[Rfam]
RNA sequence: GGGUCAGCAUUAGCUCAUACGGUUACUUCCUCACACUGAACUUUCCAUCCAUCUAAUCCCUGCACCGGGGUUCGAGACCUGUGGGUGCUUUCUGACCCUUUA
Number, nucleotide and partner (000 for none) at each position: 001g000002g097003g096004u095005c094006a093007g092008c000009a000010u000011u000012a000013g086014c085015u084016c083017a000018u000019a082020c081021g080022g079023u000024u000025a000026c000027u076028u075029c074030c000031u000032c000033a000034c000035a000036c000037u000038g000039a000040a000041c000042u000043u000044u000045c000046c000047a000048u000049c000050c000051a000052u000053c000054u000055a000056a000057u000058c000059c000060c000061u000062g000063c000064a000065c000066c000067g000068g000069g000070g000071u000072u000073c000074g029075a028076g027077a000078c000079c022080u021081g020082u019083g016084g015085g014086u013087g000088c000089u000090u000091u000092c007093u006094g005095a004096c003097c002098c000099u000100u000101u000102a000

Shown here is a 102-nucleotide sequence from Prolemur simus, a member of the family "Vault RNA". The organism belongs to Prolemur, within Eukaryota. This family of RNAs are found as part of the enigmatic vault ribonucleoprotein complex. The complex consists of a major vault protein (MVP), two minor vault proteins (VPARP and TEP1), and several small untranslated RNA molecules. It has been suggested that the vault complex is involved in drug resistance. Rfam classes the family as a non-coding RNA gene.